[Rfam]
RNA sequence: AGCCGAUGAUGAGCCUUAUUUUAUUUCUGACACCUCAUAUGAAAUUGUUGCACAGCAAUGCUUGAUUAUGCUUUUGUGGCUGAGGCUU
Numbered sequence: 001a002g003c004c005g006a007u008g009a010u011g012a013g014c015c016u017u018a019u020u021u022u023a024u025u026u027c028u029g030a031c032a033c034c035u036c037a038u039a040u041g042a043a044a045u046u047g048u049u050g051c052a053c054a055g056c057a058a059u060g061c062u063u064g065a066u067u068a069u070g071c072u073u074u075u076g077u078g079g080c081u082g083a084g085g086c087u088u
Stems, first nucleotide, its partner, number of pairs: 001087004048058004